[Rfam]
RNA sequence: UUCUUCUGAGUCUGUAGUUGCGGGUAUUCAAACCCUAGUCCAAGGCAGAUGCGGUCAAAAGGAUCCACGUAAGCCACGUCAUUGACGUGACGAUCAUGGCGUAUCCUAGAGGUAAGUCGCACCGCCUGGCGAUAUGUGGCAUUCGGCUGCUCCAGGCGAGAGAUCAAUGGCGCAAGCUCAGAUCCAGUGCGCGAGUGUGGGGUCAAAAACUAGGUCAGUCAGAAGAG
Numbered sequence: 001u002u003c004u005u006c007u008g009a010g011u012c013u014g015u016a017g018u019u020g021c022g023g024g025u026a027u028u029c030a031a032a033c034c035c036u037a038g039u040c041c042a043a044g045g046c047a048g049a050u051g052c053g054g055u056c057a058a059a060a061g062g063a064u065c066c067a068c069g070u071a072a073g074c075c076a077c078g079u080c081a082u083u084g085a086c087g088u089g090a091c092g093a094u095c096a097u098g099g100c101g102u103a104u105c106c107u108a109g110a111g112g113u114a115a116g117u118c119g120c121a122c123c124g125c126c127u128g129g130c131g132a133u134a135u136g137u138g139g140c141a142u143u144c145g146g147c148u149g150c151u152c153c154a155g156g157c158g159a160g161a162g163a164u165c166a167a168u169g170g171c172g173c174a175a176g177c178u179c180a181g182a183u184c185c186a187g188u189g190c191g192c193g194a195g196u197g198u199g200g201g202g203u204c205a206a207a208a209a210c211u212a213g214g215u216c217a218g219u220c221a222g223a224a225g226a227g
Stems, first nucleotide, its partner, number of pairs: 001227009012218003015212005042198001044196001045055001048105006064099002069094001074089001097205001118191005123158007162184004169178003
Shown here is a 227-nucleotide sequence from bacterium D16-34, a member of the family "raiA RNA". By type it is a riboswitch.